A member of the RNA family "Small nucleolar RNA R38" from Striga asiatica, 80 nucleotides long. The family's RNA type in Rfam is C/D-box small nucleolar RNA. Taxonomically the source falls in Striga (Eukaryota, Streptophytina, Magnoliopsida, Orobanchaceae). snoR38 is a C/D box small nucleolar RNA conserved across yeast, human, Arabidopsis and rice.

Nucleotides: 080
Base pairs, nucleotide, nucleotide: 001080003078004077006075007074
Number, partner (000 for none) and nucleotide at each position: 001080a002000g003078u004077u005000c006075u007074g008000a009000a010000u011000g012000a013000u014000g015000a016000g017000a018000a019000c020000a021000a022000u023000c024000a025000u026000u027000u028000a029000c030000c031000g032000u033000u034000a035000u036000c037000c038000c039000u040000g041000u042000c043000u044000g045000a046000u047000a048000a049000c050000u051000u052000a053000u054000g055000c056000u057000g058000a059000a060000u061000g062000u063000u064000u065000g066000u067000a068000a069000u070000c071000u072000g073000a074007c075006a076000u077004g078003g079000a080001u